[Rfam]
Streptomyces-metK RNA: a 122-nucleotide RNA from Streptomyces termitum.
RNA sequence: GCGAGACACCUGGUCCAAGGUCCGAUCAGGCCCGAUAGACUGUCCGUGGAACGUCGCGGGGCGCAGCCCCCUGCCGGUCCGCGAGAUAGAGAGUAGCCAGCAGCCGCUGCAACCCCAGGGAG
Number, nucleotide and partner (000 for none) at each position: 001g000002c000003g000004a000005g000006a000007c000008a000009c000010c000011u000012g000013g000014u000015c000016c000017a000018a000019g000020g000021u000022c000023c000024g000025a000026u000027c000028a000029g000030g000031c000032c000033c000034g000035a000036u000037a000038g000039a000040c000041u000042g000043u000044c000045c000046g000047u000048g080049g079050a078051a000052c076053g075054u000055c000056g074057c000058g072059g071060g070061g069062c000063g000064c000065a000066g000067c000068c000069c061070c060071c059072u058073g000074c056075c053076g052077g000078u050079c049080c048081g000082c000083g000084a000085g000086a000087u000088a000089g000090a000091g000092a000093g000094u000095a000096g000097c000098c109099a108100g107101c106102a000103g000104c000105c000106g101107c100108u099109g098110c000111a000112a000113c000114c000115c000116c000117a000118g000119g000120g000121a000122g000
About this RNA
Rfam classes the family as a small RNA. Pairs were carried over by alignment from the consensus structure, which is taken from published work. Lineage of the source: Bacteria > Bacillati > Actinomycetes > Kitasatosporales > Streptomyces.